[Rfam]
RNA sequence: GCAUGGCUGAAUACUGUGUUCUUUAGUCAAUAAUUUACACAGCCAGACACCAUGCAAAAGUAAAGUCUUCCUUUAAAAUGAUUGGUAUGCUGUUUUUUUUAAUAGUAUAUCAUUAUUAAAAGUAAGUACAAAU
Numbered sequence: 001g002c003a004u005g006g007c008u009g010a011a012u013a014c015u016g017u018g019u020u021c022u023u024u025a026g027u028c029a030a031u032a033a034u035u036u037a038c039a040c041a042g043c044c045a046g047a048c049a050c051c052a053u054g055c056a057a058a059a060g061u062a063a064a065g066u067c068u069u070c071c072u073u074u075a076a077a078a079u080g081a082u083u084g085g086u087a088u089g090c091u092g093u094u095u096u097u098u099u100u101a102a103u104a105g106u107a108u109a110u111c112a113u114u115a116u117u118a119a120a121a122g123u124a125a126g127u128a129c130a131a132a133u
Stems, first nucleotide, its partner, number of pairs: 001055006014042006067126003070122001072120005083112010
RNA: Small nucleolar RNA SNORA15
Organism: Cricetulus griseus